[Rfam]
RNA: mir-172 microRNA precursor family
RNA sequence: GCGGUUGUCGAUGCAGCAUCAUCAAGAUUCUCAUAUACAUAUCAAAACCCUAAUUGAUAUAAAAUUAGGAGAUGUAUGUGAAUCUUGAUGGUGCUGCACCUACAAACAA
Number, nucleotide and partner (000 for none) at each position: 001g000002c000003g000004g000005u000006u000007g000008u000009c000010g100011a000012u098013g097014c096015a095016g094017c093018a092019u091020c090021a089022u088023c087024a086025a085026g084027a083028u082029u081030c080031u000032c078033a077034u000035a000036u000037a000038c000039a000040u000041a000042u000043c000044a000045a000046a000047a000048c000049c000050c000051u000052a000053a000054u000055u000056g000057a000058u000059a000060u000061a000062a000063a000064a000065u000066u000067a000068g000069g000070a000071g000072a000073u000074g000075u000076a000077u033078g032079u000080g030081a029082a028083u027084c026085u025086u024087g023088a022089u021090g020091g019092u018093g017094c016095u015096g014097c013098a012099c000100c010101u000102a000103c000104a000105a000106a000107c000108a000109a000